Overview
Mammalian CPEB3 ribozyme: a 78-nucleotide sequence from Liparis tanakae. A reference for the family is Teixeira et al. (2004), "Autocatalytic RNA cleavage in the human beta-globin pre-mRNA promotes transcription termination", Nature. The base pairs follow the family's consensus structure, which is taken from published work. A search with the family's covariance model found it, with a score of 46 bits. Its family is annotated with RNA nuclease activity in the Gene Ontology.
RNA sequence: AGUGACUCAUUUGGGGAUCAUGGUAGAACGUUCAAGUUCGCGAUCCCUGUCAGGUCUAACAAACCUGCGAAUUCUACC
Numbered sequence: 001a002g003u004g005a006c007u008c009a010u011u012u013g014g015g016g017a018u019c020a021u022g023g024u025a026g027a028a029c030g031u032u033c034a035a036g037u038u039c040g041c042g043a044u045c046c047c048u049g050u051c052a053g054g055u056c057u058a059a060c061a062a063a064c065c066u067g068c069g070a071a072u073u074c075u076a077c078c
Stems, first nucleotide, its partner, number of pairs: 014047006022078007029040002051067005